Notes:
Shown here is a 66-nucleotide RNA from Calorimonas adulescens, a member of the family "Fluoride riboswitch aptamer (crcB RNA motif)". Gene Ontology terms of the family: response to fluoride and positive regulation of gene expression.
RNA sequence: AAUACUAAUGGCGAUGGAACUCGUCAGAAAUGCUUGAAUUAAGAAGCUAAUAGUUCCUACCUCGAU
Numbered sequence: 001a002a003u004a005c006u007a008a009u010g011g012c013g014a015u016g017g018a019a020c021u022c023g024u025c026a027g028a029a030a031u032g033c034u035u036g037a038a039u040u041a042a043g044a045a046g047c048u049a050a051u052a053g054u055u056c057c058u059a060c061c062u063c064g065a066u
Base pairs, nucleotide, nucleotide: 010025011024012023013022016057017056018055019054020053021052032047033046034045035044
Source information:
It scores 40 bits against the family's covariance model.